Mammalian CPEB3 ribozyme: a 77-nucleotide RNA from Alligator mississippiensis.
Lineage of the source: Eukaryota > Opisthokonta > Metazoa > Tetrapoda > Alligator.
A search with the family's covariance model found it, with a score of 38 bits.
Pairs were carried over by alignment from the consensus structure, which is taken from published work.
RNA sequence: GGUUGCAAGCUUGAAGCCAUAGCAGAAGCACUCGUGUCAUGGCUCUGUCAGAUUAAAACAAAUUUGCAAAUUCUGAU
Dot-bracket structure: ............[.[[[[..(.((((((...........)]]]]]...((((((......))))))....))))).)